Rfam assigns this 70-nucleotide sequence from Ornatilinea apprima to the family "Fluoride riboswitch aptamer (crcB RNA motif)". Pairs were carried over by alignment from the consensus structure, which is taken from published work.
[Rfam]
RNA sequence: AUAUCAAUAAGCGAUGAGGCUCGCUCAAAAGAUAUAAAUCGCUCAAACAGCUAAUGGCCUCUACCAGGUU
Numbered sequence: 001a002u003a004u005c006a007a008u009a010a011g012c013g014a015u016g017a018g019g020c021u022c023g024c025u026c027a028a029a030a031g032a033u034a035u036a037a038a039u040c041g042c043u044c045a046a047a048c049a050g051c052u053a054a055u056g057g058c059c060u061c062u063a064c065c066a067g068g069u070u
Stems, first nucleotide, its partner, number of pairs: 010025004016061006041051003